[Rfam]
RNA sequence: UGCAAGUAUUUUACGAUUGAGAAGCAAUUGCCUCUUAUACAGAUCGUUUAUAAAGUU
Dot-bracket structure: .................(((((.((....)).)))))....................
RNA: Plastid-rps18 3UTR RNA